The family of this 81-nucleotide RNA sequence from Chelydra serpentina is "mir-219 microRNA precursor family".
[Rfam]
RNA sequence: UCUGCUCCUGAUUGUCCAAACGCAAUUCUUGUGGAAUGGAAACAUACAAACCAAGAAUUGUGUCUGGACAUCUGUGGCAGA
Numbered sequence: 001u002c003u004g005c006u007c008c009u010g011a012u013u014g015u016c017c018a019a020a021c022g023c024a025a026u027u028c029u030u031g032u033g034g035a036a037u038g039g040a041a042a043c044a045u046a047c048a049a050a051c052c053a054a055g056a057a058u059u060g061u062g063u064c065u066g067g068a069c070a071u072c073u074g075u076g077g078c079a080g081a
Base pairs, nucleotide, nucleotide: 002080003079004078005077006076010072011071012070014069015068016067017066018065021062022061023060024059025058026057027056028055029054030053031052
Record summary
Its family is annotated with RISC complex and miRNA-mediated post-transcriptional gene silencing in the Gene Ontology. For this family Rfam cites "Vertebrate microRNA genes" (Lim et al., Science, 2003). The family has 92 seed sequences and 1,318 matches in Rfam 15.1. Lineage of the source: Eukaryota > Opisthokonta > Bilateria > Gnathostomata > Chelydra. It scores 77 bits against the family's covariance model. Pairs were carried over by alignment from the consensus structure, which was predicted with RNAalifold.